[Rfam]
SAM riboswitch aptamer (S box leader): a 116-nucleotide RNA sequence from Natranaerobius thermophilus. Rfam's curators write: The SAM riboswitch is found upstream of a number of genes which code for proteins involved in methionine or cysteine biosynthesis in Gram-positive bacteria. Rfam's curators put it in the seed alignment.

RNA sequence: UCCUUAUCAAGAGUGGUGGAGGGACUGGCCCUAUGAAGCCCGGCAACCGGCAGCAGCUAAUCCUGCUGUAAAGGUGCCAAAUCCUGCAGAAGUGUAUUACUUCUGACAGAUAAGGA
Number, nucleotide and partner (000 for none) at each position: 001u116002c115003c114004u113005u112006a111007u110008c109009a000010a000011g000012a000013g041014u000015g040016g039017u038018g000019g000020a000021g031022g030023g029024a000025c086026u000027g084028g083029c023030c022031c021032u000033a000034u000035g000036a000037a000038g017039c016040c015041c013042g078043g077044c076045a075046a000047c074048c073049g000050g069051c068052a067053g066054c065055a064056g000057c000058u000059a000060a000061u000062c000063c000064u055065g054066c053067u052068g051069u050070a000071a000072a000073g048074g047075u045076g044077c043078c042079a000080a000081a000082u108083c028084c027085u000086g025087c105088a104089g103090a102091a101092g100093u000094g000095u000096a000097u000098u000099a000100c092101u091102u090103c089104u088105g087106a000107c000108a082109g008110a007111u006112a005113a004114g003115g002116a001